Small nucleolar RNA U83B: a 93-nucleotide RNA from Falco tinnunculus. The literature on the family includes a 2000 paper in Nucleic Acids Res by Jady and Kiss, "Characterisation of the U83 and U84 small nucleolar RNAs: two novel 2'-O-ribose methylation guide RNAs that lack complementarities to ribosomal RNAs". It scores 40 bits against the family's covariance model. Lineage of the source: Eukaryota > Amniota > Dinosauria > Falconiformes > Falco. Rfam describes the family as follows. U83B belongs to the C/D family of snoRNAs.
[Rfam]
RNA sequence: GCACGUUCAGUGAUGAGGCAUGGGAAGAAGCACUGGGCAGUGUGUGACACCCGCGGGGAGUGGCUCUGUACUUGCAUUUCUUCUGAGAGCAGC
Numbered sequence: 001g002c003a004c005g006u007u008c009a010g011u012g013a014u015g016a017g018g019c020a021u022g023g024g025a026a027g028a029a030g031c032a033c034u035g036g037g038c039a040g041u042g043u044g045u046g047a048c049a050c051c052c053g054c055g056g057g058g059a060g061u062g063g064c065u066c067u068g069u070a071c072u073u074g075c076a077u078u079u080c081u082u083c084u085g086a087g088a089g090c091a092g093c
Stems, first nucleotide, its partner, number of pairs: 001093002005090002